[Rfam]
RNA sequence: ACGGGGCUCCCGCCGAGUCGUGCUCUCAGGAGGACGAACCGGGGACCCAACGGCACCACCGCGGUGGAGUCCCGGGGUGAAUCCGCGCAACCGCGCGGUAGGGCGUUCUUCGGCCCGAACCCGACAGCUAACCCGGUAGGCGGUCGACGAAGAAAGA
Numbered sequence: 001a002c003g004g005g006g007c008u009c010c011c012g013c014c015g016a017g018u019c020g021u022g023c024u025c026u027c028a029g030g031a032g033g034a035c036g037a038a039c040c041g042g043g044g045a046c047c048c049a050a051c052g053g054c055a056c057c058a059c060c061g062c063g064g065u066g067g068a069g070u071c072c073c074g075g076g077g078u079g080a081a082u083c084c085g086c087g088c089a090a091c092c093g094c095g096c097g098g099u100a101g102g103g104c105g106u107u108c109u110u111c112g113g114c115c116c117g118a119a120c121c122c123g124a125c126a127g128c129u130a131a132c133c134c135g136g137u138a139g140g141c142g143g144u145c146g147a148c149g150a151a152g153a154a155a156g157a
Base pairs, nucleotide, nucleotide: 011142012141013140014139018037019036020035038137039136040135041134042133043132048074075122076121077120083098084097085096086095101116102115103114104113
RNA: c-di-AMP riboswitch aptamer (ydaO/yuaA leader)